THF (Tetrahydrofolate) riboswitch aptamer: a 93-nucleotide RNA from Sedimentibacter hydroxybenzoicus. Rfam links the family to the GO term tetrahydrofolate metabolic process. The family's consensus secondary structure is taken from published work. On this family, see Ames et al., Chem Biol 2010: "A eubacterial riboswitch class that senses the coenzyme tetrahydrofolate". The source organism's lineage runs through Bacteria, Bacillota, Tissierellia, Sedimentibacter and Sedimentibacter hydroxybenzoicus.
RNA sequence: AACAGAGUAGGCAAGGUGCGUUAAGUGUUAGGGGAUGGGAUGUCGCCCUUAAACGAAAGCUUUACGCUGCGGUAUCUUGUCGCUUCCGCUGUA
Numbered sequence: 001a002a003c004a005g006a007g008u009a010g011g012c013a014a015g016g017u018g019c020g021u022u023a024a025g026u027g028u029u030a031g032g033g034g035a036u037g038g039g040a041u042g043u044c045g046c047c048c049u050u051a052a053a054c055g056a057a058a059g060c061u062u063u064a065c066g067c068u069g070c071g072g073u074a075u076c077u078u079g080u081c082g083c084u085u086c087c088g089c090u091g092u093a
Stems, first nucleotide, its partner, number of pairs: 002092004010081009019071003025054002028052007038087003042083001058068003